[Rfam]
RNA sequence: AGCUUUACGAAUUCGUGCUGAGAUUUCGUCAGACACUUACUCAUUAGGGCUGAUCAGACUUCCAAGAUAAGUGAAGUU
Numbered sequence: 001a002g003c004u005u006u007a008c009g010a011a012u013u014c015g016u017g018c019u020g021a022g023a024u025u026u027c028g029u030c031a032g033a034c035a036c037u038u039a040c041u042c043a044u045u046a047g048g049g050c051u052g053a054u055c056a057g058a059c060u061u062c063c064a065a066g067a068u069a070a071g072u073g074a075a076g077u078u
Stems, first nucleotide, its partner, number of pairs: 002077005008071001011068003016064002020061003024058003028054003

Description: mir-3492 microRNA precursor family: a 78-nucleotide sequence from Schistosoma margrebowiei. The organism belongs to Schistosoma, within Eukaryota. A search with the family's covariance model found it, with a score of 52 bits. Gene Ontology terms of the family: RISC complex and miRNA-mediated post-transcriptional gene silencing. Pairs were carried over by alignment from the consensus structure, which was predicted with RNAalifold.